RNA sequence: CGUAGUUGCCAUGAGGAUAACAAGCUCUCUCUUCUGAAAGCAUUGAUGACAUCGCUGGCAGAAUCGAACCAAUUAAAUAUUGCCACCACUGAGCAA
Numbered sequence: 001c002g003u004a005g006u007u008g009c010c011a012u013g014a015g016g017a018u019a020a021c022a023a024g025c026u027c028u029c030u031c032u033u034c035u036g037a038a039a040g041c042a043u044u045g046a047u048g049a050c051a052u053c054g055c056u057g058g059c060a061g062a063a064u065c066g067a068a069c070c071a072a073u074u075a076a077a078u079a080u081u082g083c084c085a086c087c088a089c090u091g092a093g094c095a096a
Stems, first nucleotide, its partner, number of pairs: 006096004
This 96-nucleotide RNA sequence from Triticum turgidum belongs to the Rfam family "Small nucleolar RNA R30/Z108". Its Rfam clan is "SNORD100 clan". A search with the family's covariance model found it, with a score of 88 bits. The literature on the family includes a 2002 paper in Curr Biol by Marker et al., "Experimental RNomics. Identification of 140 Candidates for Small Non-Messenger RNAs in the Plant Arabidopsis thaliana". The family's RNA type in Rfam is C/D-box small nucleolar RNA. From the family's description: snoR30 is a C/D box small nucleolar RNA which acts as a methylation guide for 18S ribosomal RNA in plants. The base pairs follow the family's consensus structure, which was predicted with PFOLD.